[Rfam]
Nucleotides: 368
Stems, first nucleotide, its partner, number of pairs: 001364009012310007020038002023035005043351003047348005052212004059246004064208005069083005084098001085096004099203002104201002106197003121142002123138005150168006170192001171190008216267004225258006238250004274293008
Number, partner (000 for none) and nucleotide at each position: 001364c002363g003362g004361g005360u006359c007358g008357g009356a010000c011000a012310g013309a014308c015307g016306g017305u018304c019000g020038c021037g022000c023035g024034g025033c026032g027031u028000u029000u030000c031027a032026c033025g034024c035023c036000u037021c038020g039000a040000g041000g042000a043351a044350a045349g046000u047348c048347c049346g050345g051344g052212c053211u054210c055209c056000g057000c058000a059246g060245a061244g062243c063000a064208g065207a066206a067205u068204g069083g070082u071081g072080g073079a074000u075000a076000a077000c078000g079073u080072c081071c082070a083069c084098u085096c086095g087094g088093g089000g090000u091000a092000a093088c094087c095086c096085g097000c098084a099203g100202g101000c102000c103000a104201g105200u106197g107196c108195c109000a110000c111000a112000g113000a114000a115000a116000u117000g118000a119000a120000a121142c122141c123138g124137c125136c126135c127134g128000c129000u130000u131000a132000a133000a134127c135126g136125g137124g138123u139000a140000a141122g142121g143000g144000u145000g146000a147000a148000a149000c150168g151167g152166u153165g154164g155163u156000g157000u158000a159000a160000g161000a162000g163155a164154c165153c166152a167151c168150c169000a170192g171190u172189u173188c174187c175186c176185g177184c178183g179000g180000c181000g182000a183178c184177g185176c186175g187174g188173g189172a190171a191000g192170c193000u194000c195108g196107g197106u198000a199000a200105a201104c202100c203099c204068c205067a206066u207065u208064c209055g210054g211053a212052g213000c214000a215000a216267g217266g218265u219264c220000a221000g222000a223000c224000a225258g226257a227256a228255u229254g230253c231000g232000c233000c234000a235000c236000g237000a238250g239249g240248g241247c242000u243062g244061c245060u246059c247241g248240c249239c250238c251000c252000a253230g254229c255228a256227u257226u258225c259000g260000g261000g262000u263000a264219g265218a266217c267216c268000g269000c270000u271000u272000g273000a274293u275292c276291c277290g278289c279288c280287g281286a282000g283000c284000a285000a286281u287280c288279g289278g290277c291276g292275g293274g294000c295000u296000a297000g298000a299000u300000g301000g302000a303000u304018g305017a306016c307015c308014g309013u310012c311000g312000c313000c314000u315000c316000g317000c318000c319000u320000g321000g322000g323000u324000a325000a326000c327000c328000u329000g330000g331000c332000g333000c334000a335000g336000g337000c338000a339000c340000a341000a342000g343000a344051c345050c346049c347048g348047g349045c350044u351043u352000a353000c354000g355000c356009u357008c358007c359006g360005g361004c362003c363002c364001g365000u366000c367000c368000a
Shown here is a 368-nucleotide RNA, a member of the family "Bacterial RNase P class A".
The family's consensus secondary structure is taken from published work.
By type it is a ribozyme.